[Rfam]
RNA sequence: GGCGCGGCCCUUGCUAUAGCUUGAACAUCCGGCAAUCAACGCAGAUUGCCCCGUUCACGACAAAGGCGCCGU
Numbered sequence: 001g002g003c004g005c006g007g008c009c010c011u012u013g014c015u016a017u018a019g020c021u022u023g024a025a026c027a028u029c030c031g032g033c034a035a036u037c038a039a040c041g042c043a044g045a046u047u048g049c050c051c052c053g054u055u056c057a058c059g060a061c062a063a064a065g066g067c068g069c070c071g072u
Stems, first nucleotide, its partner, number of pairs: 031050007
RNA: narK RNA